[Rfam]
RNA sequence: AGUGCGCAUGAUUUGCUAAGUCGCUCUGGAUAAGAGCGUCUGCUAAAUGACUAAAA
Numbered sequence: 001a002g003u004g005c006g007c008a009u010g011a012u013u014u015g016c017u018a019a020g021u022c023g024c025u026c027u028g029g030a031u032a033a034g035a036g037c038g039u040c041u042g043c044u045a046a047a048u049g050a051c052u053a054a055a056a
Stems, first nucleotide, its partner, number of pairs: 013045001015043001017042002022038006
A member of the RNA family "UnaL2 LINE 3' element" from Coregonus sp. 'balchen', 56 nucleotides long.
Rfam links the family to the GO term transposition, RNA-mediated.
The organism belongs to Coregonus, within Eukaryota.
The eel long interspersed element (LINE) UnaL2 and its partner short interspersed element (SINE) share a conserved 3' tail containing a stem-loop that is critical for their retrotransposition. Presumably, the first step of retrotransposition is the recognition of their 3' tails by UnaL2-encoded reverse transcriptase. The solution structure of a 17-nucleotide RNA derived from the 3' tail of UnaL2 was determined by NMR.
The family's RNA type in Rfam is cis-regulatory element.